RNA sequence: CUGGCUCCGGUUCACGUGGAUGCACCCAAGCAUCGACGACCCGGAGCA
Numbered sequence: 001c002u003g004g005c006u007c008c009g010g011u012u013c014a015c016g017u018g019g020a021u022g023c024a025c026c027c028a029a030g031c032a033u034c035g036a037c038g039a040c041c042c043g044g045a046g047c048a
Stems, first nucleotide, its partner, number of pairs: 004047002007044004015038003019034005
Shown here is a 48-nucleotide RNA from Nocardioides sp. CF8, a member of the family "L31-Actinobacteria ribosomal protein leader".